[Rfam]
RNA sequence: AGCUUUGCGCAGUGGCAGUAUCGUAGCCAAUGAGGUUUAUCCGAGGCGCGAUUAUUGCUAAUUAAAAUCAUCACCUCUGUAUUGUCUCAAAAAAAUGAGCAAUACAGAGUGAAGUUGAACCAAGUAUACACAU
Numbered sequence: 001a002g003c004u005u006u007g008c009g010c011a012g013u014g015g016c017a018g019u020a021u022c023g024u025a026g027c028c029a030a031u032g033a034g035g036u037u038u039a040u041c042c043g044a045g046g047c048g049c050g051a052u053u054a055u056u057g058c059u060a061a062u063u064a065a066a067a068u069c070a071u072c073a074c075c076u077c078u079g080u081a082u083u084g085u086c087u088c089a090a091a092a093a094a095a096u097g098a099g100c101a102a103u104a105c106a107g108a109g110u111g112a113a114g115u116u117g118a119a120c121c122a123a124g125u126a127u128a129c130a131c132a133u
Stems, first nucleotide, its partner, number of pairs: 020052005026047003034042002075111001077109001078106007085098002126133002
RNA: U4 spliceosomal RNA